Background
Bacillaceae-1 RNA: a 67-nucleotide RNA sequence from Lederbergia galactosidilytica. Pairs were carried over by alignment from the consensus structure, which is taken from published work. The family's RNA type in Rfam is small RNA.
RNA sequence: UUCAGUGGAUCAAAGGCUAAGAUCGCAACAUCCUGUUGCUACGCCUUUGUGACCUGCUUCCUGCUGG
Dot-bracket structure: ..........(((((((.......(((((.....)))))...)))))))...((.((.....)).))